[Rfam]
Nucleotides: 089
Base pairs, nucleotide, nucleotide: 035069036068037067040063041062042059043058044057045056046055047054048053
Number, partner (000 for none) and nucleotide at each position: 001000u002000u003000g004000c005000a006000c007000g008000a009000a010000a011000a012000c013000a014000a015000c016000g017000a018000a019000a020000g021000c022000c023000c024000u025000a026000a027000c028000c029000u030000c031000u032000c033000a034000a035069u036068c037067g038000u039000c040063c041062u042059u043058g044057c045056g046055g047054u048053u049000c050000c051000u052000a053048g054047a055046c056045c057044g058043c059042g060000c061000c062041a063040g064000u065000g066000g067037u068036g069035a070000a071000u072000c073000c074000g075000u076000g077000u078000u079000c080000c081000u082000u083000c084000a085000a086000c087000u088000g089000c